[Rfam]
Rfam assigns this 72-nucleotide RNA sequence from Streptomyces sp. PAN_FS17 to the family "tRNA". The match comes from Rfam's covariance-model search (54 bits). It is annotated as a transfer RNA.

RNA sequence: GGCCCUGUGGAGCAGAGGCAGACUCGCCGCCCUCUCAAGGCGGAUACGCCGGUUCGAAUCCGGCCGGGGCCC
Numbered sequence: 001g002g003c004c005c006u007g008u009g010g011a012g013c014a015g016a017g018g019c020a021g022a023c024u025c026g027c028c029g030c031c032c033u034c035u036c037a038a039g040g041c042g043g044a045u046a047c048g049c050c051g052g053u054u055c056g057a058a059u060c061c062g063g064c065c066g067g068g069g070c071c072c
Stems, first nucleotide, its partner, number of pairs: 001071007010025003027043005048064005